Notes: The record is a 389-nucleotide RNA from Kurthia sp. 11kri321, which matches "Bacterial RNase P class B" in Rfam. The organism belongs to Kurthia, within Bacteria. The match comes from Rfam's covariance-model search (299 bits). Ribonuclease P (RNase P) is a ubiquitous endoribonuclease, found in archaea, bacteria and eukarya as well as chloroplasts and mitochondria. Its best characterised activity is the generation of mature 5'-ends of tRNAs by cleaving the 5'-leader elements of precursor-tRNAs. Cellular RNase Ps are ribonucleoproteins. RNA from bacterial RNase Ps retains its catalytic activity in the absence of the protein subunit, i.e. it is a ribozyme. Isolated eukaryotic and archaeal RNase P RNA has not been shown to retain its catalytic function, but is still essential for the catalytic activity of the holoenzyme. Although the archaeal and eukaryotic holoenzyme s have a much greater protein content than the bacterial ones, the RNA cores from all the three lineages are homologous -- helices corresponding to P1, P2, P3, P4, and P10/11 are common to all cellular RNase P RNAs. Yet, there is considerable sequence variation, particularly among the eukaryotic RNAs. A reference for the family is Frank and Pace (1998), "Ribonuclease P: unity and diversity in a tRNA processing ribozyme", Annu Rev Biochem. Rfam links the family to the GO terms tRNA processing, dimeric ribonuclease P complex and ribonuclease P activity.

RNA sequence: GCGAAUGAGUAAUCGCUGCAACGCUUUGACGUUGUUGAGGAAAGUCCAUGCUCACACGAUUCUGAGAUGAACGUAGUGUUCGUGCUUCGCGAAAUCAUAAGCGGAGGUAGCAGCAAUGCUAACGGCGAAAGGAAAACCUAAGUUUUCGGAUAUGGUUGAAACUUUCUGAAAGUGCCACAGUGACGAAGUCGUAUAGGAAACUUUACGAGUGGAACGAGGUAAACCCCACGAGUGAGCAACCCAAAUUAUGGUAGGGGCGUUCUCCUGAAAGAAAUGAAUGGAUGGAGAGAUAGGUAUGCUUGCAUAUCUAUAGAUAGAUGAUUACUACCCGAGUAGUACGAGGCUUUUAGCUGUUUGAGUACGAAGGGCACAAAACAUGGCUUACAGUU
Numbered sequence: 001g002c003g004a005a006u007g008a009g010u011a012a013u014c015g016c017u018g019c020a021a022c023g024c025u026u027u028g029a030c031g032u033u034g035u036u037g038a039g040g041a042a043a044g045u046c047c048a049u050g051c052u053c054a055c056a057c058g059a060u061u062c063u064g065a066g067a068u069g070a071a072c073g074u075a076g077u078g079u080u081c082g083u084g085c086u087u088c089g090c091g092a093a094a095u096c097a098u099a100a101g102c103g104g105a106g107g108u109a110g111c112a113g114c115a116a117u118g119c120u121a122a123c124g125g126c127g128a129a130a131g132g133a134a135a136a137c138c139u140a141a142g143u144u145u146u147c148g149g150a151u152a153u154g155g156u157u158g159a160a161a162c163u164u165u166c167u168g169a170a171a172g173u174g175c176c177a178c179a180g181u182g183a184c185g186a187a188g189u190c191g192u193a194u195a196g197g198a199a200a201c202u203u204u205a206c207g208a209g210u211g212g213a214a215c216g217a218g219g220u221a222a223a224c225c226c227c228a229c230g231a232g233u234g235a236g237c238a239a240c241c242c243a244a245a246u247u248a249u250g251g252u253a254g255g256g257g258c259g260u261u262c263u264c265c266u267g268a269a270a271g272a273a274a275u276g277a278a279u280g281g282a283u284g285g286a287g288a289g290a291u292a293g294g295u296a297u298g299c300u301u302g303c304a305u306a307u308c309u310a311u312a313g314a315u316a317g318a319u320g321a322u323u324a325c326u327a328c329c330c331g332a333g334u335a336g337u338a339c340g341a342g343g344c345u346u347u348u349a350g351c352u353g354u355u356u357g358a359g360u361a362c363g364a365a366g367g368g369c370a371c372a373a374a375a376c377a378u379g380g381c382u383u384a385c386a387g388u389u
Stems, first nucleotide, its partner, number of pairs: 004389003007385001008326007016037001018035004042383003046380005051236005056074003060071003080231005085106006107123001108121005124226002127166004135157004142151003172224002174220003189208005195202002240256003260289006290311009328367002333362003